A member of the RNA family "Small nucleolar RNA R16" from Salvia splendens, 80 nucleotides long. Rfam classes the family as a C/D-box small nucleolar RNA. Its family is annotated with nucleolus and RNA processing in the Gene Ontology.
RNA sequence: AAAGGCAAUUGAUGUGAAAUUAUAUUAUUCUACACUGAAUUUGAUGUGGACUACAACUCCGCUUGUUACCUGAUGCCUCC
Numbered sequence: 001a002a003a004g005g006c007a008a009u010u011g012a013u014g015u016g017a018a019a020u021u022a023u024a025u026u027a028u029u030c031u032a033c034a035c036u037g038a039a040u041u042u043g044a045u046g047u048g049g050a051c052u053a054c055a056a057c058u059c060c061g062c063u064u065g066u067u068a069c070c071u072g073a074u075g076c077c078u079c080c
Base pairs, nucleotide, nucleotide: 003078004077005076006075007074
Description:
Taxonomically the source falls in core Calosphace (Eukaryota, Embryophyta, Spermatophyta, Mentheae).